[Rfam]
RNA sequence: AUUGCGCUGCGACGUUGGUGACUGCCAUCAAGUUUUUUGAUCUAUGUCUUUAAGAAAAUGGGAGUCGAUUGUUCUUUGUGGCAGUAUACCGGGCUUAGUUCUCGGAAACUUUAAACGAAGCGAAAGGUUCCCACCCUGGUUUAUCCAGGUCAAAAACUUAGGUAAAACGGCGUUGCGGUCAUACA
Numbered sequence: 001a002u003u004g005c006g007c008u009g010c011g012a013c014g015u016u017g018g019u020g021a022c023u024g025c026c027a028u029c030a031a032g033u034u035u036u037u038u039g040a041u042c043u044a045u046g047u048c049u050u051u052a053a054g055a056a057a058a059u060g061g062g063a064g065u066c067g068a069u070u071g072u073u074c075u076u077u078g079u080g081g082c083a084g085u086a087u088a089c090c091g092g093g094c095u096u097a098g099u100u101c102u103c104g105g106a107a108a109c110u111u112u113a114a115a116c117g118a119a120g121c122g123a124a125a126g127g128u129u130c131c132c133a134c135c136c137u138g139g140u141u142u143a144u145c146c147a148g149g150u151c152a153a154a155a156a157c158u159u160a161g162g163u164a165a166a167a168c169g170g171c172g173u174u175g176c177g178g179u180c181a182u183a184c185a
Stems, first nucleotide, its partner, number of pairs: 002183001006179010018168002034156003038152006060132003064128003069123001074120006084109002089105005